[Rfam]
RNA sequence: CCAAAGGCUCUUUUAAGAGCCACAUAUAUUCUCAAUGGGGGCUGU
Numbered sequence: 001c002c003a004a005a006g007g008c009u010c011u012u013u014u015a016a017g018a019g020c021c022a023c024a025u026a027u028a029u030u031c032u033c034a035a036u037g038g039g040g041g042c043u044g045u
Base pairs, nucleotide, nucleotide: 006021007020008019009018010017011016